Shown here is an 86-nucleotide sequence from Methylophaga thalassica, a member of the family "c-di-GMP-I riboswitch aptamer". The base pairs follow the family's consensus structure, which is taken from published work. The organism belongs to Methylophaga thalassica, within Bacteria. Rfam describes the family as follows. GEMM was predicted in a large-scale screen for bacterial structured RNA regulatory elements. Its family is annotated with cyclic-di-GMP binding in the Gene Ontology. Rfam 15.1 lists 5,092 matches to the family in 1,772 species.
Nucleotides: 086
Base pairs, nucleotide, nucleotide: 012037013036017032018031019030020029021028022027040080041079042078043077045076046075047074048071049070050069054065055064056063057062
Number, partner (000 for none) and nucleotide at each position: 001000u002000g003000u004000a005000a006000u007000u008000a009000a010000a011000g012037c013036c014000a015000a016000a017032c018031u019030c020029g021028c022027u023000g024000u025000g026000a027022g028021g029020c030019g031018g032017g033000g034000u035000c036013g037012g038000a039000a040080a041079g042078c043077c044000a045076c046075a047074g048071a049070u050069c051000u052000u053000u054065a055064a056063a057062u058000c059000u060000a061000c062057a063056u064055u065054u066000a067000a068000a069050g070049a071048u072000g073000g074047c075046u076045g077043g078042g079041u080040u081000g082000c083000a084000u085000u086000g